[Rfam]
RNA: U5 spliceosomal RNA
Organism: Chara braunii
RNA sequence: GGCUGCGUGCCCAGCUCAGUGGACGUACUAUUCUUUCGCCUUUUACUAAAGAAUACCGUGGGCUGAGCACACGUAAGCAGCUUACGUGAAUUUUUCACAGGCCUACCGGACUAGUCUG
Numbered sequence: 001g002g003c004u005g006c007g008u009g010c011c012c013a014g015c016u017c018a019g020u021g022g023a024c025g026u027a028c029u030a031u032u033c034u035u036u037c038g039c040c041u042u043u044u045a046c047u048a049a050a051g052a053a054u055a056c057c058g059u060g061g062g063c064u065g066a067g068c069a070c071a072c073g074u075a076a077g078c079a080g081c082u083u084a085c086g087u088g089a090a091u092u093u094u095u096c097a098c099a100g101g102c103c104u105a106c107c108g109g110a111c112u113a114g115u116c117u118g
Stems, first nucleotide, its partner, number of pairs: 003080004008069003012065007029055008098118001100117002103114003